A member of the RNA family "Eukaryotic large subunit ribosomal RNA" from Schizosaccharomyces octosporus, 485 nucleotides of a longer RNA. Taxonomically the source falls in Schizosaccharomyces octosporus (Eukaryota, Fungi, Schizosaccharomycetaceae, Schizosaccharomyces).
[Rfam]
RNA sequence: CCUGCCGAAGUUCCCUCAGGAUAGCAGAAACUCAGAUCAGUUUAUGAGGUAAAGCGAAUGAUUAGAGGUCUUGGGAAGGAAUUUCCUCAACCUAUUCUCAACUUUAAAUAUGUAAGACGCCCUUGUCGCUUAAUUGGACGUGGCCAUCGAAUGAGAGUUUCUAGUGGGCCAUUUUGGUAAGCAGAACUGCGAUGCGGGAUGAACCGAACGUGAGGUAAGGUGCCGGAAUGUACGCUCAUCAGACACAGCAAAAGGUGUUAGUUCAUCUAGACAGCAGGACGGUGGCCAUGGAAGUCGGAAUCCGCUAAGAGUGUGUAACAACUCACCUGCCGAAUGAACUAGCCCUGAAAUGGAUGGCGCUUAAGCGUACUACCCAUACCUCACCGUCUGGUUAUGUAUAAUUGAGAGCUCAGACGAGUAGGCGGGCGUGGAGGUUUGUGACGAAGCCUUGGCGUGAGCCUGGGUCGAACAGCUCUAGUGCAGAU
Numbered sequence: 001c002c003u004g005c006c007g008a009a010g011u012u013c014c015c016u017c018a019g020g021a022u023a024g025c026a027g028a029a030a031c032u033c034a035g036a037u038c039a040g041u042u043u044a045u046g047a048g049g050u051a052a053a054g055c056g057a058a059u060g061a062u063u064a065g066a067g068g069u070c071u072u073g074g075g076a077a078g079g080a081a082u083u084u085c086c087u088c089a090a091c092c093u094a095u096u097c098u099c100a101a102c103u104u105u106a107a108a109u110a111u112g113u114a115a116g117a118c119g120c121c122c123u124u125g126u127c128g129c130u131u132a133a134u135u136g137g138a139c140g141u142g143g144c145c146a147u148c149g150a151a152u153g154a155g156a157g158u159u160u161c162u163a164g165u166g167g168g169c170c171a172u173u174u175u176g177g178u179a180a181g182c183a184g185a186a187c188u189g190c191g192a193u194g195c196g197g198g199a200u201g202a203a204c205c206g207a208a209c210g211u212g213a214g215g216u217a218a219g220g221u222g223c224c225g226g227a228a229u230g231u232a233c234g235c236u237c238a239u240c241a242g243a244c245a246c247a248g249c250a251a252a253a254g255g256u257g258u259u260a261g262u263u264c265a266u267c268u269a270g271a272c273a274g275c276a277g278g279a280c281g282g283u284g285g286c287c288a289u290g291g292a293a294g295u296c297g298g299a300a301u302c303c304g305c306u307a308a309g310a311g312u313g314u315g316u317a318a319c320a321a322c323u324c325a326c327c328u329g330c331c332g333a334a335u336g337a338a339c340u341a342g343c344c345c346u347g348a349a350a351u352g353g354a355u356g357g358c359g360c361u362u363a364a365g366c367g368u369a370c371u372a373c374c375c376a377u378a379c380c381u382c383a384c385c386g387u388c389u390g391g392u393u394a395u396g397u398a399u400a401a402u403u404g405a406g407a408g409c410u411c412a413g414a415c416g417a418g419u420a421g422g423c424g425g426g427c428g429u430g431g432a433g434g435u436u437u438g439u440g441a442c443g444a445a446g447c448c449u450u451g452g453c454g455u456g457a458g459c460c461u462g463g464g465u466c467g468a469a470c471a472g473c474u475c476u477a478g479u480g481c482a483g484a485u
Base pairs, nucleotide, nucleotide: 001426002425003424004423005422006421012021013020014019026162027161028160029159030158031157032156041116042115043114044113045112046111052105053103054102059100060099061098064095066093067092068091071090072089073088074087075086077083119145121143122142124140125139126138127137168190169189171188172186173185174184175183176182195206196205197204210384211383212382213381214380216378219374220373221372228371230370233367234366235365253346254345255344257343258342259341260340261339262338263337264336265335266334274330275329276328277327278326280304281303282302286298287297309324313322314321385416386415387414388413389412390411391410393408427480429477430476431475432474433473435472436471438470439469446465447464451460452459453458